[Rfam]
RNA sequence: UGGCUCCCAAACAGGGACCUGGACAUGGGGGAGGAAGUGAAGAAGAAGGCACUAAAGUCAGCCGAAAGUGAAAGUGGAAGAAAAAUUCCUCCGGACUUCACAGGAACCUGCCGCGUUGGAACAAGUAGUAAGUAAUAAGAAUUAAGCCAGCAUCAGAUUUAUGUAGGGCAAUUAAAAGAGGCUUUAAAAGCACGAGGAGUAAAGGUUAAAAGUAAUGAUUUGUUUAAAUUUUUUGAUUUUGUAAAAGAUACCUGCCCUU
Numbered sequence: 001u002g003g004c005u006c007c008c009a010a011a012c013a014g015g016g017a018c019c020u021g022g023a024c025a026u027g028g029g030g031g032a033g034g035a036a037g038u039g040a041a042g043a044a045g046a047a048g049g050c051a052c053u054a055a056a057g058u059c060a061g062c063c064g065a066a067a068g069u070g071a072a073a074g075u076g077g078a079a080g081a082a083a084a085a086u087u088c089c090u091c092c093g094g095a096c097u098u099c100a101c102a103g104g105a106a107c108c109u110g111c112c113g114c115g116u117u118g119g120a121a122c123a124a125g126u127a128g129u130a131a132g133u134a135a136u137a138a139g140a141a142u143u144a145a146g147c148c149a150g151c152a153u154c155a156g157a158u159u160u161a162u163g164u165a166g167g168g169c170a171a172u173u174a175a176a177a178g179a180g181g182c183u184u185u186a187a188a189a190g191c192a193c194g195a196g197g198a199g200u201a202a203a204g205g206u207u208a209a210a211a212g213u214a215a216u217g218a219u220u221u222g223u224u225u226a227a228a229u230u231u232u233u234u235g236a237u238u239u240u241g242u243a244a245a246a247g248a249u250a251c252c253u254g255c256c257c258u259u
Base pairs, nucleotide, nucleotide: 006031007030008029013026015024038046085129086128087127089125090124096119097118099115101113103111143186144185145184146182147181148180193235194234195233196232197231198230199229200228203221204220205219206218207217208216244259245258247256249254

Mason-Pfizer monkey virus packaging signal: a 259-nucleotide sequence from Colobus angolensis. This family represents a group of sequences that are related to the Mason-Pfizer monkey virus (MPMV) packaging signal. The packaging signal is located in the 5' UTR and is required for specific RNA encapsidation. Taxonomically the source falls in Colobus angolensis (Eukaryota, Craniata, Simiiformes, Colobus). By type it is a cis-regulatory element.